[Rfam]
RNA sequence: CCAACGGCUCUUUUAAGAGCCACCUACUUCUGUCUGAAGGGUCAAAG
Numbered sequence: 001c002c003a004a005c006g007g008c009u010c011u012u013u014u015a016a017g018a019g020c021c022a023c024c025u026a027c028u029u030c031u032g033u034c035u036g037a038a039g040g041g042u043c044a045a046a047g
Stems, first nucleotide, its partner, number of pairs: 006021006
RNA: Histone 3' UTR stem-loop
Organism: Poecilia reticulata